The family of this 98-nucleotide RNA sequence from Sporosarcina limicola is "pan motif".
It is annotated as a cis-regulatory element.
The source organism's lineage runs through Bacteria, Bacilli, Caryophanales, Caryophanaceae and Sporosarcina.
RNA sequence: AGGGCGGUAUCAACUGCGAACUGCACCUUUAGUAAAAUGAUUAAAUUGCAUAGUUCAACAUGAUCUGCCUUGAUCUUACAACAGACAGGGACGGAGGA
Numbered sequence: 001a002g003g004g005c006g007g008u009a010u011c012a013a014c015u016g017c018g019a020a021c022u023g024c025a026c027c028u029u030u031a032g033u034a035a036a037a038u039g040a041u042u043a044a045a046u047u048g049c050a051u052a053g054u055u056c057a058a059c060a061u062g063a064u065c066u067g068c069c070u071u072g073a074u075c076u077u078a079c080a081a082c083a084g085a086c087a088g089g090g091a092c093g094g095a096g097g098a
Stems, first nucleotide, its partner, number of pairs: 001028003004024005010019002065094003068090005074085003